[Rfam]
RNA sequence: UUAAAAAAUAUACUCCGAACAAAAGUAUUUAAGGGUAUUUUUACCUAUGAUACUGCGUCAAGACUUAAGUCUUCAGGGUUGUAGUAGGAAACAAAUCAGCCUUCCAUGUUUGAAAAGGAGUUUAUUUUUCAUAUAU
Numbered sequence: 001u002u003a004a005a006a007a008a009u010a011u012a013c014u015c016c017g018a019a020c021a022a023a024a025g026u027a028u029u030u031a032a033g034g035g036u037a038u039u040u041u042u043a044c045c046u047a048u049g050a051u052a053c054u055g056c057g058u059c060a061a062g063a064c065u066u067a068a069g070u071c072u073u074c075a076g077g078g079u080u081g082u083a084g085u086a087g088g089a090a091a092c093a094a095a096u097c098a099g100c101c102u103u104c105c106a107u108g109u110u111u112g113a114a115a116a117g118g119a120g121u122u123u124a125u126u127u128u129u130c131a132u133a134u135a136u
Base pairs, nucleotide, nucleotide: 004129006127012121013120014119015118016117019058020057024054025053026052027051028050029049033046034045035044036043060073061072062071063070064069076102077101078100079099080098081097083096085094087092103113104112
Shown here is a 136-nucleotide RNA from Clostridium sp. DSM 8431, a member of the family "Molybdenum/Tungsten riboswitch aptamer (Moco RNA motif)". Rfam 15.1 lists 1,248 matches to the family in 836 species. For this family Rfam cites "in molybdenum cofactor and tungsten cofactor metabolism" (Regulski et al., Mol Microbiol, 2008). The organism belongs to Clostridium, within Bacteria. The match comes from Rfam's covariance-model search (74 bits).